[Rfam]
RNA sequence: AUUACGUUGCGGCUCGUCAUCAGGCACUUUGCUUCUUUUUUUUAUGCGAGCUGCCUUUUGAAGGGCAACACUGUGAU
Numbered sequence: 001a002u003u004a005c006g007u008u009g010c011g012g013c014u015c016g017u018c019a020u021c022a023g024g025c026a027c028u029u030u031g032c033u034u035c036u037u038u039u040u041u042u043u044a045u046g047c048g049a050g051c052u053g054c055c056u057u058u059u060g061a062a063g064g065g066c067a068a069c070a071c072u073g074u075g076a077u
Stems, first nucleotide, its partner, number of pairs: 004074003008070002012066004017061003023055002028050005

Rfam assigns this 77-nucleotide sequence from Cyphomyrmex costatus to the family "mir-980 microRNA precursor family". Lineage of the source: Eukaryota > Mandibulata > Pterygota > Eumetabola > Cyphomyrmex. The match comes from Rfam's covariance-model search (60 bits). The family's consensus secondary structure was predicted with RNAalifold.